Rfam assigns this 61-nucleotide RNA sequence from Gossypium trilobum to the family "Plastid-psbN 5UTR RNA". Plastid psbN is a non-coding RNA (ncRNA) recognised in plastids. It was reported as a conserved 11 stem-loop in the prime untranslated region (5UTR) of psbN genes. It has been reported that the motif is retained in a subset of mature transcripts in barley, which can suggests a possible role in transcript alternative 5 prime processing. The organism belongs to Gossypium, within Eukaryota. A reference for the family is Richter et al. (2023), "Retrograde signaling in plants: A critical review focusing on the GUN pathway and beyond", Plant Commun. It is annotated as a cis-regulatory element. Pairs were carried over by alignment from the consensus structure, which was predicted with LocARNA.

[Rfam]
RNA sequence: UGUGACACCCAUCAAAGGAAUAGUUCCCUAUCCAGGGGCUACCUUACCAUGUUCUGGAUUC
Numbered sequence: 001u002g003u004g005a006c007a008c009c010c011a012u013c014a015a016a017g018g019a020a021u022a023g024u025u026c027c028c029u030a031u032c033c034a035g036g037g038g039c040u041a042c043c044u045u046a047c048c049a050u051g052u053u054c055u056g057g058a059u060u061c
Base pairs, nucleotide, nucleotide: 017045018044021041022040023039024038025037026036027035